[Rfam]
RNA sequence: UGCAACCGGCCGUCGCGCCAACCCGUCCCUCGAUGCGGCGAUCGGUUCAGGUUCGUCCUGCGGAGGCCCGCCGCUUUCCCUGAAGCGGCGGGUC
Numbered sequence: 001u002g003c004a005a006c007c008g009g010c011c012g013u014c015g016c017g018c019c020a021a022c023c024c025g026u027c028c029c030u031c032g033a034u035g036c037g038g039c040g041a042u043c044g045g046u047u048c049a050g051g052u053u054c055g056u057c058c059u060g061c062g063g064a065g066g067c068c069c070g071c072c073g074c075u076u077u078c079c080c081u082g083a084a085g086c087g088g089c090g091g092g093u094c
Stems, first nucleotide, its partner, number of pairs: 004047006011040006065094012
The record is a 94-nucleotide sequence from Caulobacter sp. K31, which matches "caulobacter sRNA CC1840" in Rfam. It is annotated as a small RNA.